A member of the RNA family "c-di-GMP-I riboswitch aptamer" from a Candidatus Brocadiaceae bacterium, 117 nucleotides long. The source organism's lineage runs through Bacteria, Pseudomonadati, Candidatus Brocadiia, Candidatus Brocadiales and Candidatus Brocadiaceae.

[Rfam]
RNA sequence: CAGUGAUAAAGGUAAACCCUGAGUGAUCAGGGGGCGCAAAGUAAAGGGUCUUCAACAAACGUAACCCGGAAGUAGGAAUUCAUAAGUUAGAAAUAAGAAGAUUGCCUUACUGCCAAA
Dot-bracket structure: ...........((...((((((....))))))...))..((((.(((((((((...........................................))))))..)))))))......